[Rfam]
RNA: RT-14 RNA
Organism: [Clostridium] symbiosum
RNA sequence: UUUUCUCUCAUAGCCAGAUAUUCGGGGCUCAAGGGUCUCGUCUCAGAGCAGAGAGACAAAAGGGAUUCGUCUCCGUGCCGACUGAGAAGGUCGGCAAAAAAUAAAAACCUCAUGGAAGCCGUUAGUAGCUUAGGGAGCAGCUCCCCGAGCGAACGCCGUGACACAUG
Numbered sequence: 001u002u003u004u005c006u007c008u009c010a011u012a013g014c015c016a017g018a019u020a021u022u023c024g025g026g027g028c029u030c031a032a033g034g035g036u037c038u039c040g041u042c043u044c045a046g047a048g049c050a051g052a053g054a055g056a057c058a059a060a061a062g063g064g065a066u067u068c069g070u071c072u073c074c075g076u077g078c079c080g081a082c083u084g085a086g087a088a089g090g091u092c093g094g095c096a097a098a099a100a101a102u103a104a105a106a107a108c109c110u111c112a113u114g115g116a117a118g119c120c121g122u123u124a125g126u127a128g129c130u131u132a133g134g135g136a137g138c139a140g141c142u143c144c145c146c147g148a149g150c151g152a153a154c155g156c157c158g159u160g161a162c163a164c165a166u167g
Base pairs, nucleotide, nucleotide: 004056005055006054007053008052009051013049014048020043023040024039025038026037027036028035029034077095078094079093080092081091082090083089111167112166113165114164118159119158121156122155128150129149130148131147